[Rfam]
RNA: Alphaproteobacteria transfer-messenger RNA
Organism: Alphaproteobacteria bacterium
RNA sequence: AUGGUUGGCGCUUAACGCAUUCUCCCCUAUAUUCAUCCCGUCCCCGCAAGGGGACUAUGGCGAUAAACCCUCACGUAAUAAGCGGACCGGACCCGGGGGCAGUGCCCGGCGGCUCCACCAGAUUUCUCCCGGGAUCAUUGCCCGGACUGUCUGGGGCCGACACAGGAUCGACGGACGUGUAAAGGUGAAGACUUUGCCCGCUUUGGCCCCGUUAGAAGCCUUUUACGCAAUAGUUGCCAAUGACAACUUUGCUCAGGACCAAGCUCUCAGGACCAAGCUCUUGCUGCGUAAGCAGCGGAACUAGUCCGCACACUUAAGUCCUGCGCUCUAGCAAGUUCAGGCGGGGCUCGGGGCGGCGCCUGGCAACAGAAGCCGCCCCACU
Number, nucleotide and partner (000 for none) at each position: 001a000002u000003g000004g000005u000006u000007g000008g000009c000010g000011c000012u000013u000014a000015a000016c000017g000018c000019a000020u000021u000022c000023u000024c000025c000026c000027c000028u000029a000030u000031a000032u000033u000034c000035a000036u000037c000038c000039c000040g055041u054042c053043c052044c051045c000046g000047c000048a000049a000050g000051g044052g043053g042054a041055c040056u000057a000058u000059g198060g197061c196062g195063a194064u000065a000066a000067a000068c000069c000070c190071u188072c187073a186074c185075g000076u000077a000078a000079u000080a000081a000082g000083c177084g176085g000086a000087c174088c173089g172090g000091a000092c000093c109094c108095g107096g106097g105098g000099g000100c000101a000102g000103u000104g000105c097106c096107c095108g094109g093110c159111g158112g157113c156114u155115c154116c153117a000118c000119c000120a000121g000122a000123u000124u000125u000126c000127u000128c000129c000130c000131g000132g000133g000134a000135u000136c000137a000138u000139u000140g000141c000142c000143c000144g000145g000146a000147c000148u000149g000150u000151c000152u000153g116154g115155g114156g113157c112158c111159g110160a000161c000162a000163c000164a000165g000166g000167a000168u000169c000170g000171a000172c089173g088174g087175a000176c084177g083178u000179g000180u000181a000182a000183a000184g000185g074186u073187g072188a071189a000190g070191a000192c000193u000194u063195u062196g061197c060198c059199c211200g210201c000202u000203u000204u000205g222206g221207c000208c000209c000210c200211g199212u000213u000214a000215g000216a000217a000218g000219c000220c000221u206222u205223u000224u000225a000226c000227g000228c000229a000230a000231u000232a000233g000234u000235u000236g000237c000238c000239a000240a000241u000242g000243a000244c000245a000246a000247c000248u000249u000250u000251g000252c000253u000254c000255a000256g000257g000258a000259c000260c000261a000262a000263g000264c000265u000266c000267u000268c000269a000270g000271g000272a000273c000274c000275a000276a000277g000278c000279u000280c000281u000282u000283g000284c000285u000286g000287c000288g000289u000290a000291a000292g000293c000294a000295g000296c000297g000298g000299a000300a000301c000302u000303a000304g000305u000306c000307c000308g000309c000310a000311c000312a000313c000314u000315u000316a000317a000318g000319u000320c000321c000322u000323g000324c000325g000326c000327u000328c000329u000330a000331g000332c000333a000334a000335g000336u000337u000338c000339a000340g000341g000342c000343g000344g361345g360346g359347c358348u000349c000350g379351g378352g377353g376354c375355g374356g000357c000358g347359c346360c345361u344362g000363g000364c000365a000366a000367c000368a000369g000370a000371a000372g000373c000374c355375g354376c353377c352378c351379c350380a000381c000382u000